Background:
Eukaryotic large subunit ribosomal RNA: a 493-nucleotide part of an RNA from Colletotrichum tanaceti. Pairs were carried over by alignment from the consensus structure, which is taken from published work. The source organism's lineage runs through Eukaryota, Opisthokonta, Dikarya, Glomerellales and Colletotrichum destructivum species complex.

RNA sequence: UCCGCUGAAGUUUCCCUUAGGAUAGCAGUGUUAAACUUAGUUUUAUAAGGUAAAGCGAAUAAUUAGGGACUUAGGGGCUAUAUAUUGCCUUUAUCUAUUCUCAAACUUUAAAUAUGUAAGAAGCCCUUGUUGCUUAAUUAAACGUAGGCAUUUAAAUGUAUUAACACUAGUAGGCUAUUUUUAGUAAGCAGAACUAGCGAUGUGGGAUGAACUAAACGUAAGGUUAAGGUGCUAGAGUAGUUGCUUAUUAGACACCACAAAAGGUGUUAGUAUAUCUUGACAGUAGGACAGUGGCUAUAGAAGUCGGAAUCUGCUAAGGACUGUGUAAUAACUUACCUGCUAAAUGUACUAGCCCUAAAAAUAGAUAGCGCUUAAGCGACUUACCUAUACCUCGCCCUUAGUGUAGAAACGAUGCGCUGAGGAGUAGGCGGAUGUGGAGGUUAGUAAUAAAGCCUAGGGCGUAAGCCUGGGUAGAACAGCCUCUAGUGUAGAU
Numbered sequence: 001u002c003c004g005c006u007g008a009a010g011u012u013u014c015c016c017u018u019a020g021g022a023u024a025g026c027a028g029u030g031u032u033a034a035a036c037u038u039a040g041u042u043u044u045a046u047a048a049g050g051u052a053a054a055g056c057g058a059a060u061a062a063u064u065a066g067g068g069a070c071u072u073a074g075g076g077g078c079u080a081u082a083u084a085u086u087g088c089c090u091u092u093a094u095c096u097a098u099u100c101u102c103a104a105a106c107u108u109u110a111a112a113u114a115u116g117u118a119a120g121a122a123g124c125c126c127u128u129g130u131u132g133c134u135u136a137a138u139u140a141a142a143c144g145u146a147g148g149c150a151u152u153u154a155a156a157u158g159u160a161u162u163a164a165c166a167c168u169a170g171u172a173g174g175c176u177a178u179u180u181u182u183a184g185u186a187a188g189c190a191g192a193a194c195u196a197g198c199g200a201u202g203u204g205g206g207a208u209g210a211a212c213u214a215a216a217c218g219u220a221a222g223g224u225u226a227a228g229g230u231g232c233u234a235g236a237g238u239a240g241u242u243g244c245u246u247a248u249u250a251g252a253c254a255c256c257a258c259a260a261a262a263g264g265u266g267u268u269a270g271u272a273u274a275u276c277u278u279g280a281c282a283g284u285a286g287g288a289c290a291g292u293g294g295c296u297a298u299a300g301a302a303g304u305c306g307g308a309a310u311c312u313g314c315u316a317a318g319g320a321c322u323g324u325g326u327a328a329u330a331a332c333u334u335a336c337c338u339g340c341u342a343a344a345u346g347u348a349c350u351a352g353c354c355c356u357a358a359a360a361a362u363a364g365a366u367a368g369c370g371c372u373u374a375a376g377c378g379a380c381u382u383a384c385c386u387a388u389a390c391c392u393c394g395c396c397c398u399u400a401g402u403g404u405a406g407a408a409a410c411g412a413u414g415c416g417c418u419g420a421g422g423a424g425u426a427g428g429c430g431g432a433u434g435u436g437g438a439g440g441u442u443a444g445u446a447a448u449a450a451a452g453c454c455u456a457g458g459g460c461g462u463a464a465g466c467c468u469g470g471g472u473a474g475a476a477c478a479g480c481c482u483c484u485a486g487u488g489u490a491g492a493u
Base pairs, nucleotide, nucleotide: 001432002431003430004429005428006427011024013022014021015020027168028167029166030165031164032163033162041121042120043119044118045117046116047115053109054107055106060103062101065098067096068095069094072093073092074091075090076089077088080086123149124148125147128144129143130142131141174198175197176196177195179193180192181191182190203214204213205212218395219394221392222391224389228385229384230383237382239381242378243377244376262356263355264354266353267352268351269350270349271348272347273346274345275344283340284339285338286337287336289313290312291311295307296306314318319334323332324331396422397421398420399419400418401417402416403415404414433488435485436484437483438482439481440480441479442478444477445476452472453471458467459466460465